[Rfam]
Nucleotides: 112
Stems, first nucleotide, its partner, number of pairs: 003068003007064005012058002016026003028054006037046002076107014
Number, partner (000 for none) and nucleotide at each position: 001000c002000a003068c004067c005066c006000a007064g008063c009062g010061g011060g012058g013057c014000a015000g016026g017025c018024g019000c020000c021000a022000g023000u024018c025017g026016c027000c028054g029053g030052c031051c032050g033049g034000u035000a036000a037046u038045u039000g040000g041000a042000a043000c044000a045038g046037g047000g048000g049033c050032u051031g052030g053029c054028c055000a056000a057013g058012c059000g060011c061010c062009c063008g064007c065000a066005g067004g068003g069000g070000a071000a072000g073000c074000c075000c076107g077106g078105g079104g080103g081102c082101c083100g084099a085098a086097u087096g088095u089094c090000g091000g092000g093000g094089g095088a096087c097086a098085u099084u100083c101082g102081g103080c104079c105078c106077c107076u108000u109000u110000u111000u112000u

This 112-nucleotide RNA sequence from Montanilutibacter psychrotolerans belongs to the Rfam family "Xanthomonadaceae sRNA asX1". The organism belongs to Montanilutibacter, within Bacteria.